[Rfam]
RNA sequence: UCACAAGUUUAGAGCCAUAGCAGAAGCACUCACGGUGCAGCCUGUCAGAUUCCAUCGAAUCUAUGAAUUCUACU
Number, nucleotide and partner (000 for none) at each position: 001u000002c000003a000004c000005a000006a000007g000008u000009u000010u000011a000012g000013a000014g041015c040016c000017a000018u000019a074020g073021c000022a071023g070024a069025a068026g038027c037028a036029c000030u000031c000032a000033c000034g000035g000036u028037g027038c026039a000040g015041c014042c000043u000044g000045u000046c000047a062048g061049a060050u059051u058052c057053c000054a000055u000056c000057g052058a051059a050060u049061c048062u047063a000064u000065g000066a000067a000068u025069u024070c023071u022072a000073c020074u019